[Rfam]
RNA sequence: GAUACGGAGGGAUAUGCAGUCGCAAGUUCUUAUCGCCUUUUACUAUGAGAACCCGUGUUUAUCCCUCAUUAACGUGUCUAUCUCAUUUUUGUGAGGAGUUGAUACUCCUA
Numbered sequence: 001g002a003u004a005c006g007g008a009g010g011g012a013u014a015u016g017c018a019g020u021c022g023c024a025a026g027u028u029c030u031u032a033u034c035g036c037c038u039u040u041u042a043c044u045a046u047g048a049g050a051a052c053c054c055g056u057g058u059u060u061a062u063c064c065c066u067c068a069u070u071a072a073c074g075u076g077u078c079u080a081u082c083u084c085a086u087u088u089u090u091g092u093g094a095g096g097a098g099u100u101g102a103u104a105c106u107c108c109u110a
Stems, first nucleotide, its partner, number of pairs: 002077004008066007016058003026052008092110001094109006
RNA: U5 spliceosomal RNA
Organism: Cavenderia fasciculata